[Rfam]
RNA sequence: AAUCUGUCAUGGAUAACCCAGUGGAAGGCUCACCGCCAUGCCAGUUACCCUGCUUCGGCCUUGGCCAGCAGGAAAGGUGCCUGGUACGAAUCCUGGGGUUGGCAUUUUCACUCGUGUGAGUAGUCCACGACGCUGGAAGCCACUAAGCAAUGGAGAUGACCCUUGAGGGAAGCAAUUCUGCAGAGACAUUUCCACCCUGGGAUGGCGUCACUAGAUUACAUCUUCCUGUUACAGGAAAGUUGGCAAUUUGGUGGGACAACUACUAUU
Number, nucleotide and partner (000 for none) at each position: 001a000002a014003u013004c012005u000006g000007u000008c000009a000010u000011g000012g004013a003014u002015a000016a000017c000018c000019c000020a264021g263022u262023g261024g260025a000026a000027g000028g000029c255030u254031c253032a252033c251034c250035g249036c000037c000038a000039u245040g244041c243042c242043a241044g240045u239046u238047a000048c000049c235050c234051u000052g000053c000054u000055u068056c000057g066058g065059c064060c000061u000062u000063g000064g059065c058066c057067a000068g055069c000070a000071g226072g225073a224074a223075a000076g222077g221078u220079g219080c000081c214082u213083g212084g211085u210086a208087c207088g206089a000090a203091u202092c201093c200094u199095g198096g197097g196098g195099u000100u142101g140102g000103c139104a000105u138106u137107u136108u135109c132110a000111c000112u130113c129114g128115u127116g126117u000118g125119a124120g000121u000122a000123g000124u119125c118126c116127a115128c114129g113130a112131c000132g109133c000134u000135g108136g107137a106138a105139g103140c101141c000142a100143c147144u000145a000146a000147g143148c000149a000150a000151u194152g193153g192154a191155g190156a189157u188158g000159a000160c000161c000162c185163u184164u183165g000166a000167g000168g000169g178170a177171a176172g000173c000174a000175a000176u171177u170178c169179u000180g000181c000182a000183g164184a163185g162186a000187c000188a157189u156190u155191u154192c153193c152194a151195c098196c097197c096198u095199g094200g093201g092202a091203u090204g000205g000206c088207g087208u086209c000210a085211c084212u083213a082214g081215a000216u000217u000218a000219c079220a078221u077222c076223u074224u073225c072226c071227u000228g000229u000230u000231a000232c000233a000234g050235g049236a000237a000238a046239g045240u044241u043242g042243g041244c040245a039246a000247u000248u000249u035250g034251g033252u032253g031254g030255g029256a000257c000258a000259a000260c024261u023262a022263c021264u020265a000266u000267u000
Fungal signal recognition particle RNA: a 267-nucleotide sequence from Penicillium digitatum. The family's consensus secondary structure is taken from published work. For this family Rfam cites "Structural and energetic analysis of RNA recognition by a universally conserved protein from the signal recognition particle" (Batey et al., J Mol Biol, 2001). The source organism's lineage runs through Eukaryota, Pezizomycotina, Eurotiomycetes, Aspergillaceae and Penicillium digitatum. Rfam links the family to the GO terms SRP-dependent cotranslational protein targeting to membrane, signal sequence recognition, signal recognition particle, plasma membrane targeting and signal recognition particle, endoplasmic reticulum targeting. Rfam classes the family as a non-coding RNA gene. Rfam 15.1 lists 748 matches to the family in 741 species.